Rfam assigns this 60-nucleotide sequence from Paraburkholderia tagetis to the family "Betaproteobacteria toxic small RNA".
RNA sequence: UGUCUCCUCCAUGUCUCCACGAUAUGGAUUCAGCCCGCCCAUACCGGCGGGCUUUUUCUU
Numbered sequence: 001u002g003u004c005u006c007c008u009c010c011a012u013g014u015c016u017c018c019a020c021g022a023u024a025u026g027g028a029u030u031c032a033g034c035c036c037g038c039c040c041a042u043a044c045c046g047g048c049g050g051g052c053u054u055u056u057u058c059u060u
Base pairs, nucleotide, nucleotide: 008028009027010026011025012024013023014022015021032053033052034051035050036049037048038047039046
The base pairs follow the family's consensus structure, which was predicted with WAR. On this family, see Kimelman et al., Genome Res 2012: "A vast collection of microbial genes that are toxic to bacteria".